Overview
The family of this 81-nucleotide RNA sequence from Conger conger is "mir-181 microRNA precursor family". For this family Rfam cites "microRNAs: tiny regulators with great potential" (Ambros, Cell, 2001).
RNA sequence: GGGUCUCAGUGAACAUUCAACGCUGUCGGUGAGUUUAUGACACAAAUGAAAAACCAUCGUGCGUUGAGUGUACCCUGCCCC
Numbered sequence: 001g002g003g004u005c006u007c008a009g010u011g012a013a014c015a016u017u018c019a020a021c022g023c024u025g026u027c028g029g030u031g032a033g034u035u036u037a038u039g040a041c042a043c044a045a046a047u048g049a050a051a052a053a054c055c056a057u058c059g060u061g062c063g064u065u066g067a068g069u070g071u072a073c074c075c076u077g078c079c080c081c
Base pairs, nucleotide, nucleotide: 001081002080003079007077008076014070015069016068017067018066019065020064021063022062027059028058029057030056031055033054034053035052036051